[Rfam]
RNA sequence: UGUUAAAAUUUUCAUCUGUUUGUACUGUUAAAAACUGAUGUAGCUGAUAGAAUAACUAAAUAAUGACAUGUGGCAUGCCAUGUGUACCCCAUGCUGAUGUACGAAGACCAGUUUUUAACUGUAAAAAUAGAUGAAAUCUUUAAUA
Numbered sequence: 001u002g003u004u005a006a007a008a009u010u011u012u013c014a015u016c017u018g019u020u021u022g023u024a025c026u027g028u029u030a031a032a033a034a035c036u037g038a039u040g041u042a043g044c045u046g047a048u049a050g051a052a053u054a055a056c057u058a059a060a061u062a063a064u065g066a067c068a069u070g071u072g073g074c075a076u077g078c079c080a081u082g083u084g085u086a087c088c089c090c091a092u093g094c095u096g097a098u099g100u101a102c103g104a105a106g107a108c109c110a111g112u113u114u115u116u117a118a119c120u121g122u123a124a125a126a127a128u129a130g131a132u133g134a135a136a137u138c139u140u141u142a143a144u145a
Stems, first nucleotide, its partner, number of pairs: 002144006010136007018128004023123003028118006
Shown here is a 145-nucleotide sequence from Gossypium aridum, a member of the family "MIR7502 microRNA precursor family". Gene Ontology terms of the family: RISC complex and miRNA-mediated post-transcriptional gene silencing. NCBI's taxonomy places the organism under Eukaryota, Viridiplantae, Euphyllophyta, Gunneridae, Gossypium.